[Rfam]
RNA sequence: UGGUAAUGAUGUCUAAACUCACGAUGGUCUUCAGAGCCCCGUUGGUGAAAGGGGACUGCUGAGAAUGCCAGUCUGGCCAUGCUGAACCAUAAAA
Dot-bracket structure: ((((.................................................................................)))).....
The record is a 94-nucleotide RNA sequence from Pelodiscus sinensis, which matches "Small nucleolar RNA SNORD35" in Rfam. The base pairs follow the family's consensus structure, which was predicted with PFOLD. A reference for the family is Nicoloso et al. (1996), "Intron-encoded, antisense small nucleolar RNAs: the characterization of nine novel species points to their direct role as guides for the 2'-O-ribose methylation of rRNAs", J Mol Biol. Rfam classes the family as a C/D-box small nucleolar RNA. Rfam's curators write: U35 is a C/D box snoRNA located in intron 6 of ribosomal protein L13A and intron 3 of ribosomal protein S11 in humans and at homologous positions in mouse and chicken ribosomal protein genes. U35 guides the methylation of 2'-O-ribose sites in 28S rRNA.